RNA sequence: UGGUAGAUGCACCCUGAUUUGACUACCCCGGCUCAAGUUUUGAGUCCGGGGUUUUUACU
Numbered sequence: 001u002g003g004u005a006g007a008u009g010c011a012c013c014c015u016g017a018u019u020u021g022a023c024u025a026c027c028c029c030g031g032c033u034c035a036a037g038u039u040u041u042g043a044g045u046c047c048g049g050g051g052u053u054u055u056u057a058c059u
Base pairs, nucleotide, nucleotide: 002013003012004011026051027050028049029048030047031046032044033043034042035041
Background: Nitrogen stress-induced RNA 1: a 59-nucleotide sequence from Oculatella sp. LEGE 06141. NCBI's taxonomy places the organism under Bacteria, Bacillati, Cyanophyceae, Oculatellaceae, Oculatella. The family's RNA type in Rfam is small RNA. The match comes from Rfam's covariance-model search (50 bits). The base pairs follow the family's consensus structure. A reference for the family is Ionescu et al. (2010), "Heterocyst-specific transcription of NsiR1, a non-coding RNA encoded in a tandem array of direct repeats in cyanobacteria", J Mol Biol.